[Rfam]
A member of the RNA family "Ribosomal protein L20 leader" from Paenibacillus oryzae, 157 nucleotides long. The family's RNA type in Rfam is cis-regulatory leader. This family is a putative r-protein leader autoregulatory structure found in B. subtilis and other low-GC Gram-positive bacteria. It is located in the 5' untranslated regions of mRNAs encoding initiation factor 3 followed by ribosomal proteins L35 and L20 (infC-rpmI-rplT). A Rho-independent transcription terminator structure that is probably involved in regulation is included at the 3' end. Rfam links the family to the GO term regulation of gene expression. The match comes from Rfam's covariance-model search (60 bits).

Nucleotides: 157
Stems, first nucleotide, its partner, number of pairs: 011026006028052003034047005124144009
Number, partner (000 for none) and nucleotide at each position: 001000a002000c003000g004000c005000a006000a007000a008000a009000g010000c011026a012025g013024a014023a015022g016021c017000a018000c019000c020000c021016g022015c023014u024013u025012c026011u027000c028052a029051c030050c031000u032000c033000u034047u035046c036045g037044g038043c039000g040000c041000a042000g043038g044037c045036u046035g047034a048000c049000a050030g051029g052028u053000u054000c055000g056000c057000g058000a059000u060000c061000a062000u063000g064000g065000a066000a067000u068000g069000a070000u071000a072000a073000c074000u075000g076000c077000a078000u079000u080000g081000c082000c083000u084000u085000u086000u087000a088000u089000c090000g091000g092000c093000a094000u095000g096000c097000a098000a099000u100000g101000a102000a103000u104000u105000u106000c107000a108000a109000u110000g111000g112000a113000c114000g115000u116000u117000g118000a119000u120000g121000u122000g123000a124144u125143g126142c127141g128140g129139g130138u131137u132136c133000u134000a135000u136132g137131a138130g139129c140128c141127c142126g143125c144124a145000u146000c147000u148000u149000u150000u151000u152000a153000u154000u155000u156000u157000u